RNA sequence: CACUCCUCGUGUUCACAGCGGUCCUUGAUUUAAUACCCAAUACAAUUAAGGCACGCGGUGAAUGCCAAGAGAG
Numbered sequence: 001c002a003c004u005c006c007u008c009g010u011g012u013u014c015a016c017a018g019c020g021g022u023c024c025u026u027g028a029u030u031u032a033a034u035a036c037c038c039a040a041u042a043c044a045a046u047u048a049a050g051g052c053a054c055g056c057g058g059u060g061a062a063u064g065c066c067a068a069g070a071g072a073g
Stems, first nucleotide, its partner, number of pairs: 003071003009065008018056003023051008
RNA: mir-124 microRNA precursor family